[Rfam]
RNA: SAM (S-adenosyl methionine) riboswitch aptamer
Organism: Litorihabitans aurantiacus
RNA sequence: GGUCACGAGGACCAGCGCCAAGCCCUCCGGCUCGCUGGCCAGCAACCGCGCCGCACGGCACGGUGCUCCCGGAGCAAGACCCGCCCGCCGCACCCGCGAUGGGAAGUCGUGCUC
Numbered sequence: 001g002g003u004c005a006c007g008a009g010g011a012c013c014a015g016c017g018c019c020a021a022g023c024c025c026u027c028c029g030g031c032u033c034g035c036u037g038g039c040c041a042g043c044a045a046c047c048g049c050g051c052c053g054c055a056c057g058g059c060a061c062g063g064u065g066c067u068c069c070c071g072g073a074g075c076a077a078g079a080c081c082c083g084c085c086c087g088c089c090g091c092a093c094c095c096g097c098g099a100u101g102g103g104a105a106g107u108c109g110u111g112c113u114c
Base pairs, nucleotide, nucleotide: 001081002080003079004078009040012038013037014036015035016034021032022031041067042066043065046063047062048061051057084103085102086101087100089098090097091096